The record is a 103-nucleotide sequence from Alkalihalophilus pseudofirmus, which matches "SAM riboswitch aptamer (S box leader)" in Rfam.
Its family is annotated with regulation of gene expression in the Gene Ontology.
Pairs were carried over by alignment from the consensus structure, which is taken from published work.

RNA sequence: UUCUUAUCAAGAGAGACGGAGGGAAUGGCCCGAUGAAGUCUCAGCAACCAGCCAUUAUUGGUCAGGUGCUAAUUCCACCAAGCUGAAGCUUGGAAGAUAAGAA
Numbered sequence: 001u002u003c004u005u006a007u008c009a010a011g012a013g014a015g016a017c018g019g020a021g022g023g024a025a026u027g028g029c030c031c032g033a034u035g036a037a038g039u040c041u042c043a044g045c046a047a048c049c050a051g052c053c054a055u056u057a058u059u060g061g062u063c064a065g066g067u068g069c070u071a072a073u074u075c076c077a078c079c080a081a082g083c084u085g086a087a088g089c090u091u092g093g094a095a096g097a098u099a100a101g102a103a
Stems, first nucleotide, its partner, number of pairs: 001103008013042005021031003026077003043070004048066002050062001052060001074095001079092005
Dot-bracket structure: ((((((((....(((((...(((..[[[)))......)))))((((.(((.(.......).)..))))))...(]]].(((((....)))))..)))))))))